[Rfam]
Rfam assigns this 132-nucleotide sequence from Salvator merianae to the family "Small nucleolar RNA SNORA27".
ACA27 is a member of the H/ACA class of snoRNA that guide the sites of modification of uridines to pseudouridines.
Lineage of the source: Eukaryota > Sarcopterygii > Dipnotetrapodomorpha > Unidentata > Salvator.
Rfam links the family to the GO terms nucleolus and RNA processing.
RNA sequence: CAACUCUUCCUCACUUUGUAAAUUAGAUAUUUCUUUUCUCAGUUGGCCAUUCAGAUGGGGUAAAGUCAAUAUCCUUUUAAAACCAAACCAGAUUAUAUUUCCCUGUUUUGGAUCCUUUGAGAGGAAACAUGU
Numbered sequence: 001c002a003a004c005u006c007u008u009c010c011u012c013a014c015u016u017u018g019u020a021a022a023u024u025a026g027a028u029a030u031u032u033c034u035u036u037u038c039u040c041a042g043u044u045g046g047c048c049a050u051u052c053a054g055a056u057g058g059g060g061u062a063a064a065g066u067c068a069a070u071a072u073c074c075u076u077u078u079a080a081a082a083c084c085a086a087a088c089c090a091g092a093u094u095a096u097a098u099u100u101c102c103c104u105g106u107u108u109u110g111g112a113u114c115c116u117u118u119g120a121g122a123g124g125a126a127a128c129a130u131g132u
Base pairs, nucleotide, nucleotide: 035062037060038059039058043054044053045052046051072125073124074123075122076121077120086108087107089105090104091103092100